[Rfam]
RNA sequence: UAAAUCAGUCUGCCUAAUCCACUAUAUUCCCAACAAAGAUUUGUAAAGGGUAAACCGGAGCGGAGGAACCAAAUCUGGGGCGUAUUUUGAAGAAAGUUAAUAGUUAAUAGUGAGGAGUUAAAAGUUACUAAACUCAUAACUCAUAACUUUCUUAAGAAGGACAUCUCUCAGUCCUAGCCCGUCAGCUAACUUCGUCGGCAUUGAGAAGAGACUGA
Numbered sequence: 001u002a003a004a005u006c007a008g009u010c011u012g013c014c015u016a017a018u019c020c021a022c023u024a025u026a027u028u029c030c031c032a033a034c035a036a037a038g039a040u041u042u043g044u045a046a047a048g049g050g051u052a053a054a055c056c057g058g059a060g061c062g063g064a065g066g067a068a069c070c071a072a073a074u075c076u077g078g079g080g081c082g083u084a085u086u087u088u089g090a091a092g093a094a095a096g097u098u099a100a101u102a103g104u105u106a107a108u109a110g111u112g113a114g115g116a117g118u119u120a121a122a123a124g125u126u127a128c129u130a131a132a133c134u135c136a137u138a139a140c141u142c143a144u145a146a147c148u149u150u151c152u153u154a155a156g157a158a159g160g161a162c163a164u165c166u167c168u169c170a171g172u173c174c175u176a177g178c179c180c181g182u183c184a185g186c187u188a189a190c191u192u193c194g195u196c197g198g199c200a201u202u203g204a205g206a207a208g209a210g211a212c213u214g215a
Stems, first nucleotide, its partner, number of pairs: 011200004018059003060195006070077002078180003086156004159174004
A member of the RNA family "c-di-AMP riboswitch aptamer (ydaO/yuaA leader)" from Nostoc punctiforme, 215 nucleotides long. Rfam describes the family as follows. This family represents a conserved RNA structure found upstream of the ydaO and yuaA genes in Bacillus subtilis and related genes in other bacteria. The ydaO/yuaA element is thought to act as a genetic 'off' switch for the ydaO and yuaA genes in its native state. It scores 67 bits against the family's covariance model. NCBI's taxonomy places the organism under Bacteria, Cyanobacteriota, Cyanophyceae, Nostoc, Nostoc punctiforme.